The record is an 88-nucleotide RNA from Siminovitchvirus CP51, which matches "skipping-rope RNA" in Rfam. It scores 65 bits against the family's covariance model.
RNA sequence: CCCACUAAAGGUAGGAAAGGUACCCUACACGCUAGUGCCUCUAGCACUAGUCACCAGAGAUGCAGGAUACACCGCCCUGCUUAGUGGA
Numbered sequence: 001c002c003c004a005c006u007a008a009a010g011g012u013a014g015g016a017a018a019g020g021u022a023c024c025c026u027a028c029a030c031g032c033u034a035g036u037g038c039c040u041c042u043a044g045c046a047c048u049a050g051u052c053a054c055c056a057g058a059g060a061u062g063c064a065g066g067a068u069a070c071a072c073c074g075c076c077c078u079g080c081u082u083a084g085u086g087g088a
Stems, first nucleotide, its partner, number of pairs: 002087007011028005019073003030057001031051008062080005